RNA: TPP riboswitch aptamer (THI element)
RNA sequence: AUAAAUUACUAGAGGAGCUAUUAUUUAUAGCUGAGAAUAGAAGAAAUGACUUCUUAGACUCUUAAAACCUGAUGUGGUUAGUACCACCGUAGGGAAGUAUACUUUGAUUUAC
Numbered sequence: 001a002u003a004a005a006u007u008a009c010u011a012g013a014g015g016a017g018c019u020a021u022u023a024u025u026u027a028u029a030g031c032u033g034a035g036a037a038u039a040g041a042a043g044a045a046a047u048g049a050c051u052u053c054u055u056a057g058a059c060u061c062u063u064a065a066a067a068c069c070u071g072a073u074g075u076g077g078u079u080a081g082u083a084c085c086a087c088c089g090u091a092g093g094g095a096a097g098u099a100u101a102c103u104u105u106g107a108u109u110u111a112c
Stems, first nucleotide, its partner, number of pairs: 007099004011062004017031005039054004068093004074087004